[Rfam]
RNA: Saccharopolyspora sRNA 350
Organism: Streptomyces alboniger
RNA sequence: AUCGCGGUCUGCUCCCACCUGGCGUCCUCGUCCAGCAGAGCGUGCUCUCCGAAGUGGUCGCCAUCGGCGAGUACCUCAAGGGCGACCUCGCCGCCGUACCUGCCGACGGUGGUCUGGCUGAUGCGGCCGUGGGCGAUCAGGUACAGCUCAUCCGCGGGCCUGCCGCGCUCCACCAGCCUCUCACCGCUCCGGAAGUCGCGUUGGACGCACCGGUCGGCGAUGGCGGUCAGCACCUCCACGUCGUCGAAGCCGCGCAGCGGCGCGAGUUCACCCAGUUCGCGGGGGAUCACCCGGACGUCGGCGCCGUCCUGGACGAACUCCACGGACCCGUCGCCGACGGUGUAGCUCAGGCGCCGGUUCACGCGGUAGGCGCCGCCCUUGGUCUCCACCCAGGGGAGCAUCCGCAGCAGCCAGCGGGAGGUGAUCUCCUGCAUCUGCGGGCCGGACUUGGUCGUGGUGGUGAGGUUGCGGGCAGCGGCCGUGCCCAGGCUGGACUGCCGGGGCAGCUCCA
Numbered sequence: 001a002u003c004g005c006g007g008u009c010u011g012c013u014c015c016c017a018c019c020u021g022g023c024g025u026c027c028u029c030g031u032c033c034a035g036c037a038g039a040g041c042g043u044g045c046u047c048u049c050c051g052a053a054g055u056g057g058u059c060g061c062c063a064u065c066g067g068c069g070a071g072u073a074c075c076u077c078a079a080g081g082g083c084g085a086c087c088u089c090g091c092c093g094c095c096g097u098a099c100c101u102g103c104c105g106a107c108g109g110u111g112g113u114c115u116g117g118c119u120g121a122u123g124c125g126g127c128c129g130u131g132g133g134c135g136a137u138c139a140g141g142u143a144c145a146g147c148u149c150a151u152c153c154g155c156g157g158g159c160c161u162g163c164c165g166c167g168c169u170c171c172a173c174c175a176g177c178c179u180c181u182c183a184c185c186g187c188u189c190c191g192g193a194a195g196u197c198g199c200g201u202u203g204g205a206c207g208c209a210c211c212g213g214u215c216g217g218c219g220a221u222g223g224c225g226g227u228c229a230g231c232a233c234c235u236c237c238a239c240g241u242c243g244u245c246g247a248a249g250c251c252g253c254g255c256a257g258c259g260g261c262g263c264g265a266g267u268u269c270a271c272c273c274a275g276u277u278c279g280c281g282g283g284g285g286a287u288c289a290c291c292c293g294g295a296c297g298u299c300g301g302c303g304c305c306g307u308c309c310u311g312g313a314c315g316a317a318c319u320c321c322a323c324g325g326a327c328c329c330g331u332c333g334c335c336g337a338c339g340g341u342g343u344a345g346c347u348c349a350g351g352c353g354c355c356g357g358u359u360c361a362c363g364c365g366g367u368a369g370g371c372g373c374c375g376c377c378c379u380u381g382g383u384c385u386c387c388a389c390c391c392a393g394g395g396g397a398g399c400a401u402c403c404g405c406a407g408c409a410g411c412c413a414g415c416g417g418g419a420g421g422u423g424a425u426c427u428c429c430u431g432c433a434u435c436u437g438c439g440g441g442c443c444g445g446a447c448u449u450g451g452u453c454g455u456g457g458u459g460g461u462g463a464g465g466u467u468g469c470g471g472g473c474a475g476c477g478g479c480c481g482u483g484c485c486c487a488g489g490c491u492g493g494a495c496u497g498c499c500g501g502g503g504c505a506g507c508u509c510c511a
Stems, first nucleotide, its partner, number of pairs: 006390003011385001014382002018325002020322003024318001025316002031313005037307001042304003049301004054233002058229001060227003064223001065111002068108001077102002080099001082097003086093001119220001122217001127212001129210002132206001134203003140197001143196002149192001154187004235295003240290002243287003250282005256277003260271001262269001329342004351379001353377001355375003360372001362370001391431007399423003403418001405416001407415001437476002440473001442471003446467001447465003451461002477510002481504002484501002486497003